[Rfam]
RNA: Small Cajal body specific RNA 11
Organism: Halcyon senegalensis
RNA sequence: GUGUCCUGACCUCAUUCUGGCUGUUCCUCUCACCAGAGCUGUGGUGGGGCGGACUGGGGGUGGACACAGAUCAAAUUACCUCUCAUGUUAGGAGGGCUACCGGAGAUGUGUGCAAGCCCUUAAAGGCAAGAGAGGACAUU
Numbered sequence: 001g002u003g004u005c006c007u008g009a010c011c012u013c014a015u016u017c018u019g020g021c022u023g024u025u026c027c028u029c030u031c032a033c034c035a036g037a038g039c040u041g042u043g044g045u046g047g048g049g050c051g052g053a054c055u056g057g058g059g060g061u062g063g064a065c066a067c068a069g070a071u072c073a074a075a076u077u078a079c080c081u082c083u084c085a086u087g088u089u090a091g092g093a094g095g096g097c098u099a100c101c102g103g104a105g106a107u108g109u110g111u112g113c114a115a116g117c118c119c120u121u122a123a124a125g126g127c128a129a130g131a132g133a134g135g136a137c138a139u140u
Stems, first nucleotide, its partner, number of pairs: 002066005010059002025053003028049006079135006088125002092121007100112001101110002